Description: Shown here is a 107-nucleotide RNA sequence from Yersinia ruckeri, a member of the family "Yersinia sRNA 224". NCBI's taxonomy places the organism under Bacteria, Gammaproteobacteria, Enterobacterales, Yersiniaceae, Yersinia. Rfam 15.1 lists 130 matches to the family in 13 species. The base pairs follow the family's consensus structure.
[Rfam]
RNA sequence: GAGGUUAAUAACAAAGUCCUCGCCGCAGUGAAAAUAGGCAGACCGUCAAGUCGCAGUGAAUACGUUCUUACCGGCUCGUUCCGCGCCAUCCUUGGCGCGGACGCUUG
Numbered sequence: 001g002a003g004g005u006u007a008a009u010a011a012c013a014a015a016g017u018c019c020u021c022g023c024c025g026c027a028g029u030g031a032a033a034a035u036a037g038g039c040a041g042a043c044c045g046u047c048a049a050g051u052c053g054c055a056g057u058g059a060a061u062a063c064g065u066u067c068u069u070a071c072c073g074g075c076u077c078g079u080u081c082c083g084c085g086c087c088a089u090c091c092u093u094g095g096c097g098c099g100g101a102c103g104c105u106u107g
Base pairs, nucleotide, nucleotide: 014106015105016104017103020028022026030077031076041066042065043064045063046062052056081100082099083098084097085096086095087094088093